[Rfam]
RNA sequence: GGGGUGAAUUUUGGUCAAGGAACUCGGCAACUUAACACCGUAACUUCGGGAAAAGGUGUGCCCGCGAGAGUGUAAGGAUUUACUCCCCAAGCUUUUUCGGGUCGCAGAGAAAUGGGAGUAGCGACUGUUUAUCAAAAACACAGGUAUGUGCAAAGUCUCAAGACGAAGUAUACAUACUGACGCCUGCCCGGUGCUGGAAGGUUAAGAGGAUUAGUUAGCGUAAGCGAAGCUGAGAAUCGAAGCCCCAGUAAACGGCGGCCGUAACUAUAACGGUCCUAAGGUAGCGAAAUUCCUUGUCGGGUAAGUUCCGACCUGCACGAAUGGCGUAACGACUUCUCCGGUGUCUCGACCAAAUGCCUC
Numbered sequence: 001g002g003g004g005u006g007a008a009u010u011u012u013g014g015u016c017a018a019g020g021a022a023c024u025c026g027g028c029a030a031c032u033u034a035a036c037a038c039c040g041u042a043a044c045u046u047c048g049g050g051a052a053a054a055g056g057u058g059u060g061c062c063c064g065c066g067a068g069a070g071u072g073u074a075a076g077g078a079u080u081u082a083c084u085c086c087c088c089a090a091g092c093u094u095u096u097u098c099g100g101g102u103c104g105c106a107g108a109g110a111a112a113u114g115g116g117a118g119u120a121g122c123g124a125c126u127g128u129u130u131a132u133c134a135a136a137a138a139c140a141c142a143g144g145u146a147u148g149u150g151c152a153a154a155g156u157c158u159c160a161a162g163a164c165g166a167a168g169u170a171u172a173c174a175u176a177c178u179g180a181c182g183c184c185u186g187c188c189c190g191g192u193g194c195u196g197g198a199a200g201g202u203u204a205a206g207a208g209g210a211u212u213a214g215u216u217a218g219c220g221u222a223a224g225c226g227a228a229g230c231u232g233a234g235a236a237u238c239g240a241a242g243c244c245c246c247a248g249u250a251a252a253c254g255g256c257g258g259c260c261g262u263a264a265c266u267a268u269a270a271c272g273g274u275c276c277u278a279a280g281g282u283a284g285c286g287a288a289a290u291u292c293c294u295u296g297u298c299g300g301g302u303a304a305g306u307u308c309c310g311a312c313c314u315g316c317a318c319g320a321a322u323g324g325c326g327u328a329a330c331g332a333c334u335u336c337u338c339c340g341g342u343g344u345c346u347c348g349a350c351c352a353a354a355u356g357c358c359u360c
Stems, first nucleotide, its partner, number of pairs: 001360004010354007018346003035059005044049001060102005070085001072083004103107001115339004120334002122331002126140003143178008151168001155164003181326004186256003191253002193249005200244003206238002211233005218225002257275006276280001286313001296312006